[Rfam]
The family of this 99-nucleotide sequence from Protea cynaroides is "Small nucleolar RNA R32/R81/Z41". It scores 48 bits against the family's covariance model. Pairs were carried over by alignment from the consensus structure, which was predicted with PFOLD.

RNA sequence: AAAGGGGUUUGAUGAUGGAAGAAAUGAAGAGGUGAUGAUUCUUUGUUUUGAAGUGAUUCAUUUGAUCUCUCUUCGCUACGUUCUUUCUGAAAUCCCUUU
Numbered sequence: 001a002a003a004g005g006g007g008u009u010u011g012a013u014g015a016u017g018g019a020a021g022a023a024a025u026g027a028a029g030a031g032g033u034g035a036u037g038a039u040u041c042u043u044u045g046u047u048u049u050g051a052a053g054u055g056a057u058u059c060a061u062u063u064g065a066u067c068u069c070u071c072u073u074c075g076c077u078a079c080g081u082u083c084u085u086u087c088u089g090a091a092a093u094c095c096c097u098u099u
Base pairs, nucleotide, nucleotide: 004096005095006094007093